Notes
This 185-nucleotide RNA sequence from Kurthia sibirica belongs to the Rfam family "Lysine riboswitch aptamer". Its family is annotated with lysine biosynthetic process in the Gene Ontology.
[Rfam]
RNA sequence: UUGUGAGGUAGAGGCGCGAUAUUUAUUAGUGAUUAGAAUAGUUCGAGACAACUUAGAAGCUAAUCAGAAGGAAAUAUCGCCGAAGUAUAGUAUUAUCUCAAAAUUCUAUGCUGGGUCUGCAAUGAAUAAUUGCAGGACUGUCUUACUUUUUUUACCCGAAAAAUGUAAGUUGUGCUAUCUCUAAA
Numbered sequence: 001u002u003g004u005g006a007g008g009u010a011g012a013g014g015c016g017c018g019a020u021a022u023u024u025a026u027u028a029g030u031g032a033u034u035a036g037a038a039u040a041g042u043u044c045g046a047g048a049c050a051a052c053u054u055a056g057a058a059g060c061u062a063a064u065c066a067g068a069a070g071g072a073a074a075u076a077u078c079g080c081c082g083a084a085g086u087a088u089a090g091u092a093u094u095a096u097c098u099c100a101a102a103a104u105u106c107u108a109u110g111c112u113g114g115g116u117c118u119g120c121a122a123u124g125a126a127u128a129a130u131u132g133c134a135g136g137a138c139u140g141u142c143u144u145a146c147u148u149u150u151u152u153u154a155c156c157c158g159a160a161a162a163a164u165g166u167a168a169g170u171u172g173u174g175c176u177a178u179c180u181c182u183a184a185a
Base pairs, nucleotide, nucleotide: 006180007179008178009177010176011175016080017079018078019077020076021075022074023073024072031065032064033063034062035061036060084112085111086110087109088108089107090106092104093103094102113139114138116136117135118134119133120132121131122130123129142169143168144167145166146165